RNA sequence: UGUCUCCUCCACCCUCCUCCUUUGGUGGAUUUACCCAAGUUCUACAAGAACUUGGGUUUUUUUU
Numbered sequence: 001u002g003u004c005u006c007c008u009c010c011a012c013c014c015u016c017c018u019c020c021u022u023u024g025g026u027g028g029a030u031u032u033a034c035c036c037a038a039g040u041u042c043u044a045c046a047a048g049a050a051c052u053u054g055g056g057u058u059u060u061u062u063u064u
Stems, first nucleotide, its partner, number of pairs: 008029006033057008
RNA: Betaproteobacteria toxic small RNA